[Rfam]
RNA: ylbH leader
Organism: Virgibacillus necropolis
RNA sequence: AUAAAAAAAACCUGCAGAUAUUUAAUCUGCAGGUCUUUUUGUUUUAAAAAAACAAAAAGUAAAGGGAGAGGAGAAAUCAGAAGAAGAACUUAUGGGGAAUGUAAGUCUUCUUCUCAU
Numbered sequence: 001a002u003a004a005a006a007a008a009a010a011c012c013u014g015c016a017g018a019u020a021u022u023u024a025a026u027c028u029g030c031a032g033g034u035c036u037u038u039u040u041g042u043u044u045u046a047a048a049a050a051a052a053c054a055a056a057a058a059g060u061a062a063a064g065g066g067a068g069a070g071g072a073g074a075a076a077u078c079a080g081a082a083g084a085a086g087a088a089c090u091u092a093u094g095g096g097g098a099a100u101g102u103a104a105g106u107c108u109u110c111u112u113c114u115c116a117u
Stems, first nucleotide, its partner, number of pairs: 011033009034066005040054006080112002083110004088106005